[Rfam]
RNA: Bacterial RNase P class A
Organism: Bailinhaonella thermotolerans
RNA sequence: CGAGCCGGCCGGGCGGCCGCGUCGGGACCCUCCGGGGUCCCGCCGAGGAAGGUCCGGGCUCCACAGGGCAGGGUGGUCGGUAACACCGACCCGGGGCGACCCGCGGGACAGUGCCACAGAAAGCAAACCGCCUUCGCGGAAGCGGAGGUAAGGGUGAAACGGUGGUGUAAGAGACCACCAGCGCCCGAGGUGACUCGGGCGGCUAGGUAAACCCCACCCGGAGCAAGGUCAAGAAGGGAACGCGCGGCGCGUGUUCCCGCGCGAGACGCUGAGGGCUGCCCGCCCGAUGUCUCGCGGGUAGACCGCUAGAGGACGCGAGCAAUCGCGCCCCCAGAUGGAUGGCCGCCGGGCCCGCGCAAGCGGACCCACAGAACCCGGCCUACAGGCCGACUCGUCCG
Numbered sequence: 001c002g003a004g005c006c007g008g009c010c011g012g013g014c015g016g017c018c019g020c021g022u023c024g025g026g027a028c029c030c031u032c033c034g035g036g037g038u039c040c041c042g043c044c045g046a047g048g049a050a051g052g053u054c055c056g057g058g059c060u061c062c063a064c065a066g067g068g069c070a071g072g073g074u075g076g077u078c079g080g081u082a083a084c085a086c087c088g089a090c091c092c093g094g095g096g097c098g099a100c101c102c103g104c105g106g107g108a109c110a111g112u113g114c115c116a117c118a119g120a121a122a123g124c125a126a127a128c129c130g131c132c133u134u135c136g137c138g139g140a141a142g143c144g145g146a147g148g149u150a151a152g153g154g155u156g157a158a159a160c161g162g163u164g165g166u167g168u169a170a171g172a173g174a175c176c177a178c179c180a181g182c183g184c185c186c187g188a189g190g191u192g193a194c195u196c197g198g199g200c201g202g203c204u205a206g207g208u209a210a211a212c213c214c215c216a217c218c219c220g221g222a223g224c225a226a227g228g229u230c231a232a233g234a235a236g237g238g239a240a241c242g243c244g245c246g247g248c249g250c251g252u253g254u255u256c257c258c259g260c261g262c263g264a265g266a267c268g269c270u271g272a273g274g275g276c277u278g279c280c281c282g283c284c285c286g287a288u289g290u291c292u293c294g295c296g297g298g299u300a301g302a303c304c305g306c307u308a309g310a311g312g313a314c315g316c317g318a319g320c321a322a323u324c325g326c327g328c329c330c331c332c333a334g335a336u337g338g339a340u341g342g343c344c345g346c347c348g349g350g351c352c353c354g355c356g357c358a359a360g361c362g363g364a365c366c367c368a369c370a371g372a373a374c375c376c377g378g379c380c381u382a383c384a385g386g387c388c389g390a391c392u393c394g395u396c397c398g
Stems, first nucleotide, its partner, number of pairs: 001394004006389005011383001012347007020045002023042006050381003054378005059223004066281004071219005076090005091105001092103004106214002111212002113208003128153002130149008161179006181203001182201008227304004237293002240290003273285004311330002314327005